[Rfam]
RNA sequence: UGACCUUUGCAACACUCUGGCUCUUACCGUUCUUUCCCGCCUUCGGGCCCGGACUGGACUAUUGCAACGUGGUAUAGGCUUAUUUUACGCAAAGAAGAUCAAACUGACCCUCUACUCACCGCGGUAUUCUUGGAAGGAAGCUUGCUUUCGUCUGUGGAUACAGUGGUCCAUAUUUUGGGUCAACAC
Numbered sequence: 001u002g003a004c005c006u007u008u009g010c011a012a013c014a015c016u017c018u019g020g021c022u023c024u025u026a027c028c029g030u031u032c033u034u035u036c037c038c039g040c041c042u043u044c045g046g047g048c049c050c051g052g053a054c055u056g057g058a059c060u061a062u063u064g065c066a067a068c069g070u071g072g073u074a075u076a077g078g079c080u081u082a083u084u085u086u087a088c089g090c091a092a093a094g095a096a097g098a099u100c101a102a103a104c105u106g107a108c109c110c111u112c113u114a115c116u117c118a119c120c121g122c123g124g125u126a127u128u129c130u131u132g133g134a135a136g137g138a139a140g141c142u143u144g145c146u147u148u149c150g151u152c153u154g155u156g157g158a159u160a161c162a163g164u165g166g167u168c169c170a171u172a173u174u175u176u177g178g179g180u181c182a183a184c185a186c
Stems, first nucleotide, its partner, number of pairs: 007092003019080004025074006106181004119166004124161003128158003
RNA: Small nucleolar RNA snR80